[Rfam]
RNA sequence: UUGCCGGUGGAAGUCCGGUCCGGGUAGCUGCCAGGAGGCCCGGUAGCAGACUGGCGGUCUCGUCUGGAAACGGGCGGGGUCGGAGCCCAGUGUCGAAGGCCCUGUGAUAGGGGGAGCGACUGAGCGGUCCGUAGCGUGA
Numbered sequence: 001u002u003g004c005c006g007g008u009g010g011a012a013g014u015c016c017g018g019u020c021c022g023g024g025u026a027g028c029u030g031c032c033a034g035g036a037g038g039c040c041c042g043g044u045a046g047c048a049g050a051c052u053g054g055c056g057g058u059c060u061c062g063u064c065u066g067g068a069a070a071c072g073g074g075c076g077g078g079g080u081c082g083g084a085g086c087c088c089a090g091u092g093u094c095g096a097a098g099g100c101c102c103u104g105u106g107a108u109a110g111g112g113g114g115a116g117c118g119a120c121u122g123a124g125c126g127g128u129c130c131g132u133a134g135c136g137u138g139a
Stems, first nucleotide, its partner, number of pairs: 020043005050091005055082006064073001066071001100112004116132003
RNA: Group II catalytic intron D1-D4-4
Organism: Phytohabitans houttuyneae